[Rfam]
RNA sequence: CCCUGCCUGGAGCAGCACAGCCAAUAUUGGCAGACUUGCUUCCCUGUGCCAAUAUUUCUGUGCUGCUAGAGCCAGGG
Number, nucleotide and partner (000 for none) at each position: 001c077002c076003c075004u000005g073006c000007c071008u000009g000010g000011a067012g066013c065014a064015g063016c062017a061018c060019a000020g057021c000022c000023a056024a055025u054026a053027u052028u051029g050030g049031c048032a047033g000034a000035c000036u000037u000038g000039c000040u000041u000042c000043c000044c000045u000046g000047u032048g031049c030050c029051a028052a027053u026054a025055u024056u023057u020058c000059u000060g018061u017062g016063c015064u014065g013066c012067u011068a000069g000070a000071g007072c000073c005074a000075g003076g002077g001